[Rfam]
RNA sequence: UCAAAAGCGUUGAAGAGGAAAAGUACCGCUCCAUAUCCGCACAGAGAGCCUGGCGUCUGGUGUAAGCCGGGACGGGGACAGGGCGCGAAAGAACACCUCCGAGCUGCAGCCUGAAAUGCAAAAAGUAGGGUGUGCCGCAGGCCGUGCGUUACAGCGGCAGCGUUUCAAAGGUGAACGUGUACGGAAAAAGUGACCGUAUGCCGUCAUUUCGGCUGCGGUAAUUUAGGUGGCACCGCGGAUCCAAGACAGCGAUUCGUCCUAAUG
Numbered sequence: 001u002c003a004a005a006a007g008c009g010u011u012g013a014a015g016a017g018g019a020a021a022a023g024u025a026c027c028g029c030u031c032c033a034u035a036u037c038c039g040c041a042c043a044g045a046g047a048g049c050c051u052g053g054c055g056u057c058u059g060g061u062g063u064a065a066g067c068c069g070g071g072a073c074g075g076g077g078a079c080a081g082g083g084c085g086c087g088a089a090a091g092a093a094c095a096c097c098u099c100c101g102a103g104c105u106g107c108a109g110c111c112u113g114a115a116a117u118g119c120a121a122a123a124a125g126u127a128g129g130g131u132g133u134g135c136c137g138c139a140g141g142c143c144g145u146g147c148g149u150u151a152c153a154g155c156g157g158c159a160g161c162g163u164u165u166c167a168a169a170g171g172u173g174a175a176c177g178u179g180u181a182c183g184g185a186a187a188a189a190g191u192g193a194c195c196g197u198a199u200g201c202c203g204u205c206a207u208u209u210c211g212g213c214u215g216c217g218g219u220a221a222u223u224u225a226g227g228u229g230g231c232a233c234c235g236c237g238g239a240u241c242c243a244a245g246a247c248a249g250c251g252a253u254u255c256g257u258c259c260u261a262a263u264g
Stems, first nucleotide, its partner, number of pairs: 007104002015099004027085005037075003049071006107134002109131004136148003193219006224261004235257007
RNA: T-box leader
Organism: Gemmiger formicilis